Rfam assigns this 85-nucleotide RNA sequence from Diceros bicornis to the family "mir-877 microRNA precursor family".
The family's consensus secondary structure was predicted with RNAalifold.
The source organism's lineage runs through Eukaryota, Amniota, Perissodactyla, Rhinocerotidae and Diceros bicornis.
The match comes from Rfam's covariance-model search (90 bits).
On this family, see Berezikov et al., Genome Res 2006: "Many novel mammalian microRNA candidates identified by extensive cloning and RAKE analysis".
RNA sequence: GUAGAGGAGAUGGCGCAGGGGACACGAGCUAAGACUUAAGGGUUCUGGGCCCUUCGGACGUGUGUCCUCUUCUCCCUCCUCCCAG
Number, nucleotide and partner (000 for none) at each position: 001g000002u000003a000004g081005a080006g079007g078008a077009g076010a000011u000012g075013g074014c000015g072016c000017a070018g069019g068020g067021g066022a065023c064024a063025c062026g061027a000028g059029c000030u000031a000032a000033g000034a000035c000036u057037u056038a000039a054040g053041g052042g051043u049044u048045c000046u000047g000048g044049g043050c000051c042052c041053u040054u039055c000056g037057g036058a000059c028060g000061u026062g025063u024064g023065u022066c021067c020068u019069c018070u017071u000072c015073u000074c013075c012076c009077u008078c007079c006080u005081c004082c000083c000084a000085g000